[Rfam]
RNA sequence: UUUGUAUUGAUGAGAACAGAAACGUAAACUAUAACCUAGGGGUUUCUGUUGGAUAGUUAGCAAA
Number, nucleotide and partner (000 for none) at each position: 001u064002u063003u062004g061005u060006a000007u000008u000009g000010a000011u000012g000013a000014g000015a050016a049017c048018a047019g046020a045021a044022a043023c042024g000025u000026a000027a000028a000029c039030u038031a037032u000033a000034a000035c000036c000037u031038a030039g029040g000041g000042g023043u022044u021045u020046c019047u018048g017049u016050u015051g000052g000053a000054u000055a000056g000057u000058u000059a000060g005061c004062a003063a002064a001
This 64-nucleotide sequence from Dipodomys ordii belongs to the Rfam family "Selenocysteine insertion sequence 1". A reference for the family is Walczak et al. (1996), "A novel RNA structural motif in the selenocysteine insertion element of eukaryotic selenoprotein mRNAs", RNA. It scores 41 bits against the family's covariance model.